RNA sequence: UGUGUUGGAUGCUCUGGAAGACUAGUGAUUUUGUUGUUAUAAAUAUGUCAACCAGACAACAAGUCUCAGUCUCCCUCAACACUCAACACU
Numbered sequence: 001u002g003u004g005u006u007g008g009a010u011g012c013u014c015u016g017g018a019a020g021a022c023u024a025g026u027g028a029u030u031u032u033g034u035u036g037u038u039a040u041a042a043a044u045a046u047g048u049c050a051a052c053c054a055g056a057c058a059a060c061a062a063g064u065c066u067c068a069g070u071c072u073c074c075c076u077c078a079a080c081a082c083u084c085a086a087c088a089c090u
Base pairs, nucleotide, nucleotide: 002089003088004087005086006085007084008083010081011080013078016075017074019072020071021070022069023068025067027065028064029063030062031061033060034059035058036057037056038055

Shown here is a 90-nucleotide RNA sequence from Merluccius polli, a member of the family "mir-7 microRNA precursor family". The base pairs follow the family's consensus structure, which was predicted with PFOLD. The source organism's lineage runs through Eukaryota, Deuterostomia, Eurypterygia, Gadoidei and Merluccius. Gene Ontology terms of the family: miRNA-mediated post-transcriptional gene silencing and RISC complex. Rfam describes the family as follows. This family represents the microRNA (miRNA) precursor mir-7. The match comes from Rfam's covariance-model search (70 bits).